Shown here is a 37-nucleotide RNA sequence from Chloroflexus aurantiacus, a member of the family "CRISPR RNA direct repeat element".
Lineage of the source: Bacteria > Bacillati > Chloroflexia > Chloroflexus > Chloroflexus aurantiacus.
RNA sequence: CUUUCAACAAUUUCGGCUCACGGUAGAGCACUGAAAC
Numbered sequence: 001c002u003u004u005c006a007a008c009a010a011u012u013u014c015g016g017c018u019c020a021c022g023g024u025a026g027a028g029c030a031c032u033g034a035a036a037c
Stems, first nucleotide, its partner, number of pairs: 011036004016029004